[Rfam]
Rfam assigns this 109-nucleotide RNA sequence from Sorghum bicolor to the family "MIR5565 microRNA precursor family". It scores 80 bits against the family's covariance model. Taxonomically the source falls in Sorghum (Eukaryota, Mesangiospermae, Poaceae, Andropogonodae). The family's consensus secondary structure was predicted with RNAalifold.

RNA sequence: UUGGAUGUAGUCACAUCAAUCCACAUGUGUUGAGGUGGAUUUGAAUGAAACUCAAACUAAAUUUCACCCCAAUCCACACCAACACACAUGGAUUGAAGUGAAUCCGACA
Number, nucleotide and partner (000 for none) at each position: 001u000002u000003g000004g108005a000006u106007g105008u000009a103010g000011u101012c100013a099014c098015a000016u096017c095018a094019a093020u092021c091022c090023a089024c000025a000026u086027g085028u084029g083030u082031u081032g080033a000034g000035g077036u076037g075038g074039a073040u072041u071042u000043g069044a000045a000046u066047g065048a000049a000050a000051c000052u000053c000054a000055a000056a000057c000058u000059a000060a000061a000062u000063u000064u000065c047066a046067c000068c000069c043070c000071a041072a040073u039074c038075c037076a036077c035078a000079c000080c032081a031082a030083c029084a028085c027086a026087c000088a000089u023090g022091g021092a020093u019094u018095g017096a016097a000098g014099u013100g012101a011102a000103u009104c000105c007106g006107a000108c004109a000